[Rfam]
RNA sequence: GUGGCGGGCCGUGACUGGCGCUGAGGUGGAGCACCACCGGGGAGCGGCCCGCAGAAUCGAAUGCCGUGCGCCUGGGCGAUCCCG
Numbered sequence: 001g002u003g004g005c006g007g008g009c010c011g012u013g014a015c016u017g018g019c020g021c022u023g024a025g026g027u028g029g030a031g032c033a034c035c036a037c038c039g040g041g042g043a044g045c046g047g048c049c050c051g052c053a054g055a056a057u058c059g060a061a062u063g064c065c066g067u068g069c070g071c072c073u074g075g076g077c078g079a080u081c082c083c084g
Base pairs, nucleotide, nucleotide: 004052005051006050007049008048009047010046011045012044015041016040017072018071019070020069021068026037027036028035029034062078063077064076065075
RNA: ZMP/ZTP riboswitch aptamer (pfl RNA motif)
Organism: Streptomyces sp. MMG1533